The family of this 88-nucleotide RNA from Actinoplanes sp. OR16 is "ZMP/ZTP riboswitch aptamer (pfl RNA motif)". Rfam links the family to the GO terms one-carbon metabolic process and regulation of purine nucleotide biosynthetic process. NCBI's taxonomy places the organism under Bacteria, Actinomycetes, Micromonosporales, Micromonosporaceae, Actinoplanes.
[Rfam]
Nucleotides: 088
Stems, first nucleotide, its partner, number of pairs: 003053010015041001017076005026037004066082004
Number, partner (000 for none) and nucleotide at each position: 001000u002000c003053g004052g005051c006050a007049g008048g009047c010046c011045g012044u013000g014000a015041c016000u017076g018075g019074c020073g021072u022000u023000c024000g025000g026037g027036u028035g029034g030000a031000u032000c033000a034029c035028c036027a037026c038000c039000g040000u041015g042000g043000a044012g045011c046010g047009g048008c049007u050006u051005g052004c053003c054000g055000a056000c057000g058000a059000u060000c061000g062000g063000c064000c065000g066082u067081g068080c069079c070000g071000u072021g073020c074019g075018c076017c077000u078000g079069g080068g081067c082066g083000a084000c085000c086000c087000g088000u